[Rfam]
This 99-nucleotide RNA from Ornithinibacillus halotolerans belongs to the Rfam family "Glycine riboswitch aptamer". This family represents the bacterial glycine riboswitch. Glycine riboswitches usually consist of two metabolite-binding aptamers domains with similar structures in tandem. The aptamers cooperatively bind glycine to regulate the expression of downstream genes. In Bacillus subtilis, this riboswitch is found upstream of the gcvT operon which controls glycine degradation. A search with the family's covariance model found it, with a score of 72 bits. The organism belongs to Ornithinibacillus, within Bacteria.
RNA sequence: AUGAGUACAAGGGGAGAGAUUACCACUCGAGGAGAACAGGUAACGCCGAAGGAGCAAGCAAGUUGCGAAUCUCUCAGGCAAAAGAACCCUUGUAGGACG
Numbered sequence: 001a002u003g004a005g006u007a008c009a010a011g012g013g014g015a016g017a018g019a020u021u022a023c024c025a026c027u028c029g030a031g032g033a034g035a036a037c038a039g040g041u042a043a044c045g046c047c048g049a050a051g052g053a054g055c056a057a058g059c060a061a062g063u064u065g066c067g068a069a070u071c072u073c074u075c076a077g078g079c080a081a082a083a084g085a086a087c088c089c090u091u092g093u094a095g096g097a098c099g
Base pairs, nucleotide, nucleotide: 006094007093008092009091010090011089012088013087020043021042022041023040045079046078047077048075049074052073053072054071058066059065